A member of the RNA family "Tryptophan operon leader" from Vibrio gelatinilyticus, 103 nucleotides long. It scores 41 bits against the family's covariance model. The family's RNA type in Rfam is cis-regulatory leader. At least 6 amino acid operons are known to be regulated by attenuation. In each a leader sequence of 150-200 bp is found upstream of the first gene in the operon. This leader sequence can assume two different secondary structures known as the terminator and the anti-terminator structure. In each case the leader also codes for very short peptide sequence that is rich in the end product amino acid of the operon. The terminator structure is recognised as a termination signal for RNA polymerase and the operon is not transcribed. This structure forms when the cell has an excess of the regulatory amino acid and ribosome movement over the leader transcript is not impeded. When there is a deficiency of the charged tRNA of the regulatory amino acid the ribosome translating the leader peptide stalls and the antiterminator structure can form. This allows RNA polymerase to transcribe the operon. In the Rfam alignment the consensus structure is of the terminator structure. Its family is annotated with tryptophan biosynthetic process and transcriptional attenuation by ribosome in the Gene Ontology.
RNA sequence: AUUGUUUGGUGGCGCACAUGGAAUCAUUCUAUGUGGGCGAUUGAGUGCGUGUAACGAUACAGCAAUCCAAUAUAAGCCCACUCCGAUGAGUGGGCUUUUUUUU
Numbered sequence: 001a002u003u004g005u006u007u008g009g010u011g012g013c014g015c016a017c018a019u020g021g022a023a024u025c026a027u028u029c030u031a032u033g034u035g036g037g038c039g040a041u042u043g044a045g046u047g048c049g050u051g052u053a054a055c056g057a058u059a060c061a062g063c064a065a066u067c068c069a070a071u072a073u074a075a076g077c078c079c080a081c082u083c084c085g086a087u088g089a090g091u092g093g094g095c096u097u098u099u100u101u102u103u
Base pairs, nucleotide, nucleotide: 009042015035016034017033018032020030021029022028023027075096076095077094078093079092080091081090082088